This 124-nucleotide RNA sequence from Pararhizobium antarcticum belongs to the Rfam family "Alphaproteobacterial ar14". Smr14C2 was renamed NfeR1 (Nodule Formation Efficiency RNA) highly expressed in salt stress and during the symbiotic interaction on legume roots. It is annotated as a small RNA. Pairs were carried over by alignment from the consensus structure. The source organism's lineage runs through Bacteria, Pseudomonadota, Alphaproteobacteria, Hyphomicrobiales and Pararhizobium. It scores 101 bits against the family's covariance model.

RNA sequence: AGACAUCGGGGCAGCGCGCUCCUCCUCCCAGCGCCCCCGAUGAGACCGGCAACACCUCCUCCUCCCGGUUGCCGAUCAGAAUAAGCAACGCCCGCUGGAUCUCCUCCCCCAGCGGGCGUUGUUU
Number, nucleotide and partner (000 for none) at each position: 001a000002g000003a000004c000005a000006u000007c039008g038009g037010g000011g035012c000013a000014g034015c033016g032017c031018g000019c000020u000021c000022c000023u000024c000025c000026u000027c000028c000029c000030a000031g017032c016033g015034c014035c011036c000037c009038c008039g007040a000041u000042g000043a000044g077045a076046c000047c074048g073049g072050c071051a070052a069053c068054a000055c000056c000057u000058c000059c000060u000061c000062c000063u000064c000065c000066c000067g000068g053069u052070u051071g050072c049073c048074g047075a000076u045077c044078a000079g000080a000081a000082u000083a000084a000085g000086c000087a000088a119089c118090g117091c116092c115093c114094g113095c112096u111097g110098g109099a000100u000101c000102u000103c000104c000105u000106c000107c000108c000109c098110c097111a096112g095113c094114g093115g092116g091117c090118g089119u088120u000121g000122u000123u000124u000